[Rfam]
The record is a 96-nucleotide RNA from Pseudolycoriella hygida, which matches "mir-210 microRNA precursor family" in Rfam. The family's consensus secondary structure was predicted with WAR.
RNA sequence: GAGAUUCUUAUUAAAGCUGCUGGACACGGCACAAGAUUAGUUUUAGACUCUUGUGCGUGUUGACAGCGGCUAUUGUAAGCAAUCAGAUGCAACAGU
Numbered sequence: 001g002a003g004a005u006u007c008u009u010a011u012u013a014a015a016g017c018u019g020c021u022g023g024a025c026a027c028g029g030c031a032c033a034a035g036a037u038u039a040g041u042u043u044u045a046g047a048c049u050c051u052u053g054u055g056c057g058u059g060u061u062g063a064c065a066g067c068g069g070c071u072a073u074u075g076u077a078a079g080c081a082a083u084c085a086g087a088u089g090c091a092a093c094a095g096u
Base pairs, nucleotide, nucleotide: 005082006081007079008078009077010076011075015071016070017069018068019067020066021065022064024061025059026058029056030055031054032053033052035050036049